[Rfam]
RNA: ZMP/ZTP riboswitch aptamer (pfl RNA motif)
RNA sequence: GCCCCGGGCCGUGACUGGCGCGCAAGGAUGGGAUGAACCAUCGGGAAGCGGCCCGAGCGACAUGUGCCGAGCGCCUGGGCCGACCUG
Numbered sequence: 001g002c003c004c005c006g007g008g009c010c011g012u013g014a015c016u017g018g019c020g021c022g023c024a025a026g027g028a029u030g031g032g033a034u035g036a037a038c039c040a041u042c043g044g045g046a047a048g049c050g051g052c053c054c055g056a057g058c059g060a061c062a063u064g065u066g067c068c069g070a071g072c073g074c075c076u077g078g079g080c081c082g083a084c085c086u087g
Base pairs, nucleotide, nucleotide: 003057005055006054007053008052009051010050011049012048015045016044017075018074019073020072021071028041029040030039031038066080067079068078